[Rfam]
mir-27 microRNA precursor family: a 60-nucleotide RNA sequence from Ictalurus punctatus. Its family is annotated with RISC complex and miRNA-mediated post-transcriptional gene silencing in the Gene Ontology. The base pairs follow the family's consensus structure, which was predicted with RNAalifold. The source organism's lineage runs through Eukaryota, Gnathostomata, Teleostei, Ostariophysi and Ictalurus. For this family Rfam cites "MicroRNA profile of Marek's disease virus-transformed T-cell line MSB-1: predominance of virus-encoded microRNAs" (Yao et al., J Virol, 2008).

RNA sequence: GGACUUAACCCACUUGUGAACAAUGCAUCGAACUUCAAUGUUCACAGUGGUUAAGUUCUG
Numbered sequence: 001g002g003a004c005u006u007a008a009c010c011c012a013c014u015u016g017u018g019a020a021c022a023a024u025g026c027a028u029c030g031a032a033c034u035u036c037a038a039u040g041u042u043c044a045c046a047g048u049g050g051u052u053a054a055g056u057u058c059u060g
Stems, first nucleotide, its partner, number of pairs: 001058010016045007